[Rfam]
RNA sequence: CACGAAAGAGCAAACCUGGCGAAAGCCAGGGACGCAAAGCCACGGGUCUACGGUUGAGGUUUUAUGCCGACUAUUGACAGCCGGGUUGCCGAAG
Numbered sequence: 001c002a003c004g005a006a007a008g009a010g011c012a013a014a015c016c017u018g019g020c021g022a023a024a025g026c027c028a029g030g031g032a033c034g035c036a037a038a039g040c041c042a043c044g045g046g047u048c049u050a051c052g053g054u055u056g057a058g059g060u061u062u063u064a065u066g067c068c069g070a071c072u073a074u075u076g077a078c079a080g081c082c083g084g085g086u087u088g089c090c091g092a093a094g
Stems, first nucleotide, its partner, number of pairs: 001094001003091002010035002015030006033080001038087004043083003046078003
RNA: c-di-GMP-I-GGC riboswitch aptamer